[Rfam]
RNA: Small nucleolar RNA snoR26
Nucleotides: 092
Base pairs, nucleotide, nucleotide: 002092003091004090005089006088007087008086
Number, partner (000 for none) and nucleotide at each position: 001000c002092a003091a004090g005089c006088a007087u008086c009000c010000g011000u012000g013000a014000u015000g016000a017000g018000u019000a020000a021000c022000u023000u024000c025000c026000u027000u028000c029000u030000g031000u032000u033000a034000u035000c036000c037000u038000u039000g040000c041000a042000c043000u044000u045000u046000g047000a048000u049000u050000g051000c052000u053000a054000g055000u056000g057000a058000a059000g060000a061000a062000a063000a064000c065000u066000a067000u068000g069000g070000g071000g072000a073000u074000g075000u076000u077000u078000g079000a080000c081000u082000c083000u084000g085000a086008g087007a088006u089005g090004c091003u092002u